RNA sequence: GUAGUCGGAUUUGUAUCGAUCCAUAUAUGUUGGGGUGGAUUGGAGUAGAACUUAAACUAAAUUCCACACUAAUCCACACCAACACAUGUGGAUUGAGGUGAAUUUGAUA
Numbered sequence: 001g002u003a004g005u006c007g008g009a010u011u012u013g014u015a016u017c018g019a020u021c022c023a024u025a026u027a028u029g030u031u032g033g034g035g036u037g038g039a040u041u042g043g044a045g046u047a048g049a050a051c052u053u054a055a056a057c058u059a060a061a062u063u064c065c066a067c068a069c070u071a072a073u074c075c076a077c078a079c080c081a082a083c084a085c086a087u088g089u090g091g092a093u094u095g096a097g098g099u100g101a102a103u104u105u106g107a108u109a
Stems, first nucleotide, its partner, number of pairs: 004108011016096011028084005035077009045067002
Dot-bracket structure: ...(((((((((((.(((((((((((.(((((..(((((((((.((...................)).)))))))))..))))).))))))))))).))))))))))).